Shown here is a 233-nucleotide part of an RNA from Borreliella burgdorferi, a member of the family "Bacterial large subunit ribosomal RNA". The base pairs follow the family's consensus structure, which is taken from published work. Gene Ontology terms of the family: structural constituent of ribosome and ribosome. The organism belongs to Borreliella burgdorferi, within Bacteria.
[Rfam]
RNA sequence: GAGUUAUCAUGUCUAGCAAGAUUAAAGCAUAGAAGUGCUGGAGUCGAAGCGAAAGCGAGUCUUAAAAGGGCGAUUUAGUUAGAUGUGGUAGACCCGAAGCCGAGUGAUCUAUUUAUGGCCAGGCUGAAGCUUGGGUAAAACCAAGUGGAGGGCCGAACUCUAGUCUGUUUAAAAAGGCAGGGAUGAGCUGUGAAUAGGAGUGAAAGGCUAAACAAACUCGGAGAUAGCUGGUU
Number, nucleotide and partner (000 for none) at each position: 001g000002a000003g000004u000005u090006a089007u088008c087009a086010u085011g084012u083013c082014u081015a080016g079017c078018a000019a000020g045021a044022u043023u042024a000025a000026a039027g038028c037029a000030u000031a000032g000033a000034a000035g000036u000037g028038c027039u026040g000041g000042a023043g022044u021045c020046g000047a000048a000049g056050c055051g000052a000053a000054a000055g050056c049057g000058a000059g071060u070061c069062u068063u000064a000065a000066a000067a000068g062069g061070g060071c059072g000073a000074u000075u000076u000077a000078g017079u016080u015081a014082g013083a012084u011085g010086u009087g008088g007089u006090a005091g000092a000093c231094c230095c000096g228097a000098a000099g000100c221101c220102g219103a218104g217105u216106g000107a000108u000109c197110u196111a195112u194113u193114u192115a191116u190117g189118g188119c187120c185121a000122g154123g153124c152125u151126g000127a000128a000129g146130c145131u144132u143133g142134g141135g000136u000137a000138a000139a000140a000141c134142c133143a132144a131145g130146u129147g000148g000149a000150g000151g125152g124153c123154c122155g000156a000157a000158c182159u181160c180161u000162a000163g178164u177165c176166u175167g000168u000169u000170u000171a000172a000173a000174a000175a166176g165177g164178c163179a000180g160181g159182g158183a000184u000185g120186a000187g119188c118189u117190g116191u115192g114193a113194a112195u111196a110197g109198g000199a209200g208201u207202g000203a000204a000205a000206g000207g201208c200209u199210a000211a000212a000213c000214a000215a000216a105217c104218u103219c102220g101221g100222a000223g000224a000225u000226a000227g000228c096229u000230g094231g093232u000233u000